6S / SsrS RNA: a 191-nucleotide RNA sequence from Staphylococcus epidermidis. It is one of the family's seed sequences. The source organism's lineage runs through Bacteria, Bacillati, Bacillota, Bacilli and Staphylococcus. The family's consensus secondary structure is taken from published work.
[Rfam]
RNA sequence: AGUCAUCUGUGGUGUUCGUAAGUUUGCUUUUUAUUUGGGCCUAACACUCUUUGAUCAGGGAGCCCAAUAGGUUUUCUCGCAGCGCACACGCCUCUAUAGGAGGACUUGCAAAACGAGAAACAGGGCACCCACCUGUAUAUAGCAGGCCGAAUGAUCAAGCUAUUUAUAACUACGGCAUCAACGGACUCUAU
Numbered sequence: 001a002g003u004c005a006u007c008u009g010u011g012g013u014g015u016u017c018g019u020a021a022g023u024u025u026g027c028u029u030u031u032u033a034u035u036u037g038g039g040c041c042u043a044a045c046a047c048u049c050u051u052u053g054a055u056c057a058g059g060g061a062g063c064c065c066a067a068u069a070g071g072u073u074u075u076c077u078c079g080c081a082g083c084g085c086a087c088a089c090g091c092c093u094c095u096a097u098a099g100g101a102g103g104a105c106u107u108g109c110a111a112a113a114c115g116a117g118a119a120a121c122a123g124g125g126c127a128c129c130c131a132c133c134u135g136u137a138u139a140u141a142g143c144a145g146g147c148c149g150a151a152u153g154a155u156c157a158a159g160c161u162a163u164u165u166a167u168a169a170c171u172a173c174g175g176c177a178u179c180a181a182c183g184g185a186c187u188c189u190a191u
Stems, first nucleotide, its partner, number of pairs: 002189001006185005012178004017174003031154004036149003040146002058130003062126004074119006086107001091103004